[Rfam]
RNA sequence: UAACAUAGGGGUUUGAAAAGGGGAUCCCCCUUUUCCGGUUUAAGGAGGGUGCUCAGAAACACGAAGUGUUUCGUCGAAGGGAAC
Numbered sequence: 001u002a003a004c005a006u007a008g009g010g011g012u013u014u015g016a017a018a019a020g021g022g023g024a025u026c027c028c029c030c031u032u033u034u035c036c037g038g039u040u041u042a043a044g045g046a047g048g049g050u051g052c053u054c055a056g057a058a059a060c061a062c063g064a065a066g067u068g069u070u071u072c073g074u075c076g077a078a079g080g081g082a083a084c
Stems, first nucleotide, its partner, number of pairs: 015035008056072005